[Rfam]
RNA: GA-cis RNA
RNA sequence: AAGAUGAAUAAAGAAAAAUUCAUUUUAAUAAAUCUUUCCGACGACAAGCCACCGACCUAAGGGAGGGGCAAUACAUAUU
Dot-bracket structure: (((..((..((.......))..)).........)))...........(((.((..((...))..)))))..........